About this RNA: Rfam assigns this 147-nucleotide sequence from Ornithinibacillus bavariensis to the family "FMN riboswitch aptamer (RFN element)". The source organism's lineage runs through Bacteria, Bacillati, Bacilli, Caryophanales and Ornithinibacillus.
[Rfam]
RNA sequence: UUCCAUCUUCGGGGCAGGGUGUAAUUCCCGACCGACGGUAAUGAACCAUGGUUCUAAGUCCGUGAGCCGUUUGAGAGGUAUGUCAAAUUGGUUGAUCUGGUGUAAAUCCAGGACCGACAGUUAAAGUCUGGAUGGGAGAAGAUGUCG
Numbered sequence: 001u002u003c004c005a006u007c008u009u010c011g012g013g014g015c016a017g018g019g020u021g022u023a024a025u026u027c028c029c030g031a032c033c034g035a036c037g038g039u040a041a042u043g044a045a046c047c048a049u050g051g052u053u054c055u056a057a058g059u060c061c062g063u064g065a066g067c068c069g070u071u072u073g074a075g076a077g078g079u080a081u082g083u084c085a086a087a088u089u090g091g092u093u094g095a096u097c098u099g100g101u102g103u104a105a106a107u108c109c110a111g112g113a114c115c116g117a118c119a120g121u122u123a124a125a126g127u128c129u130g131g132a133u134g135g136g137a138g139a140a141g142a143u144g145u146c147g
Stems, first nucleotide, its partner, number of pairs: 004144007017029003031127002033116002035063004058114002066092003096112005118130003